[Rfam]
RNA sequence: UGACAGUAGUGAUGAUGACGACAUCUGUCUUACUCCUGAAUAAUCACAUGUGGGUUUUCAGUCACUACCUCAUCUGAACAGUCA
Numbered sequence: 001u002g003a004c005a006g007u008a009g010u011g012a013u014g015a016u017g018a019c020g021a022c023a024u025c026u027g028u029c030u031u032a033c034u035c036c037u038g039a040a041u042a043a044u045c046a047c048a049u050g051u052g053g054g055u056u057u058u059c060a061g062u063c064a065c066u067a068c069c070u071c072a073u074c075u076g077a078a079c080a081g082u083c084a
Base pairs, nucleotide, nucleotide: 002083003082004081006079007078
RNA: Small nucleolar RNA SNORD11B